[Rfam]
Rfam assigns this 545-nucleotide part of an RNA from Oxynema aestuarii to the family "Bacterial large subunit ribosomal RNA". The family's consensus secondary structure is taken from published work.
RNA sequence: UACAAAGGGCUAACGGUGGAUCCCUAGGCACGUCGAGGCGAAGAAGGACGUGGUGACCGACGAAACGCUCCGGGGAGCUGGAAACAAGCAUCGAGCCGGAGGUCUCCGAAUGGGGCAACCCCAAGCACGACCCAUCGAAUCCAUAGAUGGGAACGAGCGAACCUGGCGAACUGAAACAUCUUAGUAACCAGAGGAACAGAAAGAAAAAUCGAUUCCCUCAGUAGCGGCGAGCGAAGCGGGAACAGCCUAAACCGAAGACAUUAAGUCAUCGGGGUCGUGGGACGGCAACAACGAGAGUAGAGGCAGUAGACGAAGCGGCUGAAUACCGCACCAGAGGGGGUGAAAGUCCCGUAGUCGAAACCGCCAACGCCUCAGCCGAAUCCCGAGUAGCACGGAGCCCGUGGAAUUCCGUGUGAAUCAGCGAGGACCACCUCGUAAGGCUAAAUACUCCGACGUGACCGAUAGCGAAACAGUACCGUGAGGGAAAGGUGAAAAGAACCCCGAGCAGGGGAGUGAAAUAGAACCUGAACCCGUUAGCCUACAAG
Numbered sequence: 001u002a003c004a005a006a007g008g009g010c011u012a013a014c015g016g017u018g019g020a021u022c023c024c025u026a027g028g029c030a031c032g033u034c035g036a037g038g039c040g041a042a043g044a045a046g047g048a049c050g051u052g053g054u055g056a057c058c059g060a061c062g063a064a065a066c067g068c069u070c071c072g073g074g075g076a077g078c079u080g081g082a083a084a085c086a087a088g089c090a091u092c093g094a095g096c097c098g099g100a101g102g103u104c105u106c107c108g109a110a111u112g113g114g115g116c117a118a119c120c121c122c123a124a125g126c127a128c129g130a131c132c133c134a135u136c137g138a139a140u141c142c143a144u145a146g147a148u149g150g151g152a153a154c155g156a157g158c159g160a161a162c163c164u165g166g167c168g169a170a171c172u173g174a175a176a177c178a179u180c181u182u183a184g185u186a187a188c189c190a191g192a193g194g195a196a197c198a199g200a201a202a203g204a205a206a207a208a209u210c211g212a213u214u215c216c217c218u219c220a221g222u223a224g225c226g227g228c229g230a231g232c233g234a235a236g237c238g239g240g241a242a243c244a245g246c247c248u249a250a251a252c253c254g255a256a257g258a259c260a261u262u263a264a265g266u267c268a269u270c271g272g273g274g275u276c277g278u279g280g281g282a283c284g285g286c287a288a289c290a291a292c293g294a295g296a297g298u299a300g301a302g303g304c305a306g307u308a309g310a311c312g313a314a315g316c317g318g319c320u321g322a323a324u325a326c327c328g329c330a331c332c333a334g335a336g337g338g339g340g341u342g343a344a345a346g347u348c349c350c351g352u353a354g355u356c357g358a359a360a361c362c363g364c365c366a367a368c369g370c371c372u373c374a375g376c377c378g379a380a381u382c383c384c385g386a387g388u389a390g391c392a393c394g395g396a397g398c399c400c401g402u403g404g405a406a407u408u409c410c411g412u413g414u415g416a417a418u419c420a421g422c423g424a425g426g427a428c429c430a431c432c433u434c435g436u437a438a439g440g441c442u443a444a445a446u447a448c449u450c451c452g453a454c455g456u457g458a459c460c461g462a463u464a465g466c467g468a469a470a471c472a473g474u475a476c477c478g479u480g481a482g483g484g485a486a487a488g489g490u491g492a493a494a495a496g497a498a499c500c501c502c503g504a505g506c507a508g509g510g511g512a513g514u515g516a517a518a519u520a521g522a523a524c525c526u527g528a529a530c531c532c533g534u535u536a537g538c539c540u541a542c543a544a545g
Stems, first nucleotide, its partner, number of pairs: 007540010023489002027460002029457007036449002038158002046107003049062003068101006077089003112121003128155002131151006162193001163191004173180002203210002213445001214241004224232002244442004252272004257267002279384003283378004295371001297370002302365003306361002309356003315329004332336001338350003390414008421436005476483002499511004
Rfam links the family to the GO terms ribosome and structural constituent of ribosome. The source organism's lineage runs through Bacteria, Bacillati, Cyanophyceae, Oscillatoriales and Oxynema aestuarii.